[Rfam]
Background:
The family of this 178-nucleotide RNA sequence from Gloeomargarita lithophora is "Antisense RNA which regulates isiA expression". The match comes from Rfam's covariance-model search (112 bits).
RNA sequence: GAUAGCCAUAAAUAACGGCUGGAUUUAAGGUCGGGUUCGUGACUAACCGUACGGUUUGGGUAGCGGCAUCGUACAAACCACCCCACCAACAGGCUUUCGCCACCAGGAGCAAAGCCCCCGUACCUAAAAACAGUAAAUGAUGCCCCAGAAUAAUGCCCAAUUGCCGGGGAUUUUCCCA
Numbered sequence: 001g002a003u004a005g006c007c008a009u010a011a012a013u014a015a016c017g018g019c020u021g022g023a024u025u026u027a028a029g030g031u032c033g034g035g036u037u038c039g040u041g042a043c044u045a046a047c048c049g050u051a052c053g054g055u056u057u058g059g060g061u062a063g064c065g066g067c068a069u070c071g072u073a074c075a076a077a078c079c080a081c082c083c084c085a086c087c088a089a090c091a092g093g094c095u096u097u098c099g100c101c102a103c104c105a106g107g108a109g110c111a112a113a114g115c116c117c118c119c120g121u122a123c124c125u126a127a128a129a130a131c132a133g134u135a136a137a138u139g140a141u142g143c144c145c146c147a148g149a150a151u152a153a154u155g156c157c158c159a160a161u162u163g164c165c166g167g168g169g170a171u172u173u174u175c176c177c178a
Stems, first nucleotide, its partner, number of pairs: 137174001139172003144169003148165001